[Rfam]
RNA sequence: CGCUAUACUAGCUGCGAAUUCGCCGGUCCAGUGCCUUCGGACCGGUUUUUAGUGUAU
Numbered sequence: 001c002g003c004u005a006u007a008c009u010a011g012c013u014g015c016g017a018a019u020u021c022g023c024c025g026g027u028c029c030a031g032u033g034c035c036u037u038c039g040g041a042c043c044g045g046u047u048u049u050u051a052g053u054g055u056a057u
Stems, first nucleotide, its partner, number of pairs: 002012004016050003022046008
Dot-bracket structure: .((((...))))...(((...((((((((.........)))))))).))).......
The family of this 57-nucleotide RNA sequence from Enterobacteriaceae bacterium strain FGI 57 is "Enterobacterial sRNA STnc450". A search with the family's covariance model found it, with a score of 59 bits. Pairs were carried over by alignment from the consensus structure, which was predicted with CMfinder.